[Rfam]
Nucleotides: 097
Stems, first nucleotide, its partner, number of pairs: 001079010015068002022063006031055001036049005083096003
Number, partner (000 for none) and nucleotide at each position: 001079g002078u003077u004076a005075u006074g007073g008072c009071a010070u011000a012000a013000a014000a015068g016067g017000a018000u019000c020000u021000u022063u023062a024061c025060a026059u027058c028000g029000a030000a031055a032000g033000a034000a035000c036049c037048c038047g039046u040045c041000g042000c043000g044000a045040g046039g047038c048037g049036g050000u051000a052000g053000u054000a055031u056000g057000g058027g059026a060025u061024g062023u063022a064000u065000u066000g067016c068015c069000g070010g071009u072008g073007u074006c075005a076004u077003a078002a079001c080000u081000u082000a083096c084095g085094u086000u087000u088000g089000g090000a091000a092000g093000a094085a095084c096083g097000g

A member of the RNA family "Archaeal large subunit ribosomal RNA" from Methanogenium marinum, 97 nucleotides of a longer RNA. The organism belongs to Methanogenium, within Archaea. A search with the family's covariance model found it, with a score of 2902 bits.